The family of this 138-nucleotide sequence from Urocitellus parryii is "Small nucleolar RNA SNORA75". Rfam links the family to the GO terms nucleolus and RNA processing. On this family, see Ganot et al., Genes Dev 1997: "The family of box ACA small nucleolar RNAs is defined by an evolutionarily conserved secondary structure and ubiquitous sequence elements essential for RNA accumulation". It scores 117 bits against the family's covariance model. U23 belongs to the H/ACA class of snoRNAs. snoRNAs bind a number of proteins (including dyskerin, Gar1p and Nop10p in the case of the H/ACA class) to form snoRNP complexes.
RNA sequence: AUCUUCUCAUUGAGCUCCUUUCUGUCAACUGGUGGCAGUUUAUGGAUUCGCACGAGAAGAAUAGACAUUUCACAGAACAGCAUUACUUUACCUUCUGUUUCUACUGAGGUGUGUAUUUGGUUGUUCUGUGAGACAGAC
Numbered sequence: 001a002u003c004u005u006c007u008c009a010u011u012g013a014g015c016u017c018c019u020u021u022c023u024g025u026c027a028a029c030u031g032g033u034g035g036c037a038g039u040u041u042a043u044g045g046a047u048u049c050g051c052a053c054g055a056g057a058a059g060a061a062u063a064g065a066c067a068u069u070u071c072a073c074a075g076a077a078c079a080g081c082a083u084u085a086c087u088u089u090a091c092c093u094u095c096u097g098u099u100u101c102u103a104c105u106g107a108g109g110u111g112u113g114u115a116u117u118u119g120g121u122u123g124u125u126c127u128g129u130g131a132g133a134c135a136g137a138c
Stems, first nucleotide, its partner, number of pairs: 003059006014051002016046003022038005070131006092109004097104001